The record is a 116-nucleotide RNA sequence from Thermoleophilum album, which matches "SAM riboswitch aptamer (S box leader)" in Rfam.
It scores 80 bits against the family's covariance model.
Nucleotides: 116
Stems, first nucleotide, its partner, number of pairs: 002115007013043005021032003026089004044081004049077002052073007085108001091105005
Number, partner (000 for none) and nucleotide at each position: 001000c002115u003114c004113a005112c006111a007110u008109c009000g010000a011000g012000a013043g014042g015041g016040g017039u018000g019000g020000a021032g022031g023030g024000a025000c026089u027088u028087g029086g030023c031022c032021c033000u034000g035000u036000g037000a038000a039017g040016c041015c042014c043013c044081g045080g046079c047078a048000a049077c050076c051000a052073u053072c054071c055070c056069g057068g058067a059000c060000c061000g062000c063000c064000g065000c066000g067058u068057u069056c070055g071054g072053g073052a074000a075000c076050g077049g078047u079046g080045c081044c082000a083000a084000u085108u086029c087028c088027a089026a090000g091105c092104g093103g094102g095101c096000c097000g098000u099000g100000a101095g102094c103093c104092c105091g106000g107000g108085a109008g110007a111006u112005g113004u114003g115002a116000c